RNA: Mammalian CPEB3 ribozyme
Organism: Alligator sinensis
RNA sequence: GGUGGUAAAUUCAAGGCCAUAGCAGAAGUGCUUAUGGUGUAACCUAUCAGAUUCUAACGAAUCUGCAAAUUCUGCU
Numbered sequence: 001g002g003u004g005g006u007a008a009a010u011u012c013a014a015g016g017c018c019a020u021a022g023c024a025g026a027a028g029u030g031c032u033u034a035u036g037g038u039g040u041a042a043c044c045u046a047u048c049a050g051a052u053u054c055u056a057a058c059g060a061a062u063c064u065g066c067a068a069a070u071u072c073u074g075c076u
Stems, first nucleotide, its partner, number of pairs: 015044002021076007028040003048065007